[Rfam]
RNA sequence: CAAAGGGAUCAGGUUUCCAGGCCGCCUUGAAAACCAAGAAGGCAGCUUCAAAACCGAGGCUGGUUUUCAAGGCGGCCCGAAAACCACUUCCGGUUUCCAAGUCGUCU
Dot-bracket structure: ..(((((..(.(.....).)..).))))............((..((((..((((((.((.((((((((..(....)..))))))))).).))))))..))))...))
RNA: A. fumigatus sRNA Afu_203
Organism: Puccinia graminis